[Rfam]
RNA sequence: AGCAAGAAAUCAAAGGGUCGUUCCCCACCCCGGAGCUACUUUACCAUAUUCUGAAUUC
Numbered sequence: 001a002g003c004a005a006g007a008a009a010u011c012a013a014a015g016g017g018u019c020g021u022u023c024c025c026c027a028c029c030c031c032g033g034a035g036c037u038a039c040u041u042u043a044c045c046a047u048a049u050u051c052u053g054a055a056u057u058c
Base pairs, nucleotide, nucleotide: 014042015041016040017039018038020036021035022034023033024032
Shown here is a 58-nucleotide sequence from Striga hermonthica, a member of the family "Plastid-psbN 5UTR RNA".
Rfam describes the family as follows. Plastid psbN is a non-coding RNA (ncRNA) recognised in plastids. It was reported as a conserved 11 stem-loop in the prime untranslated region (5UTR) of psbN genes. It has been reported that the motif is retained in a subset of mature transcripts in barley, which can suggests a possible role in transcript alternative 5 prime processing.
Rfam 15.1 lists 2,345 matches to the family in 397 species.
A search with the family's covariance model found it, with a score of 54 bits.
The base pairs follow the family's consensus structure, which was predicted with LocARNA.
For this family Rfam cites "The primary transcriptome of barley chloroplasts: numerous noncoding RNAs and the dominating role of the plastid-encoded RNA polymerase" (Zhelyazkova et al., Plant Cell, 2012).